This 47-nucleotide sequence from Cynara cardunculus belongs to the Rfam family "Plastid-rpl16 group II-D1 intron". Taxonomically the source falls in Cynara cardunculus subsp. cardunculus (Eukaryota, Streptophyta, Asterales, Carduoideae). Rfam links the family to the GO term Group II intron splicing. About the family: Plastid-rpl16 is a non-coding RNA (ncRNA) recognised in plastids. It was recognised in and intronic region of a ribosome rpl16 gene. It scores 51 bits against the family's covariance model.
[Rfam]
RNA sequence: AAGAGCUUCGAACCAAUAAAGACCAAGAGUAUUGAUUCCAUAACUAA
Numbered sequence: 001a002a003g004a005g006c007u008u009c010g011a012a013c014c015a016a017u018a019a020a021g022a023c024c025a026a027g028a029g030u031a032u033u034g035a036u037u038c039c040a041u042a043a044c045u046a047a
Stems, first nucleotide, its partner, number of pairs: 008040001010038003014034004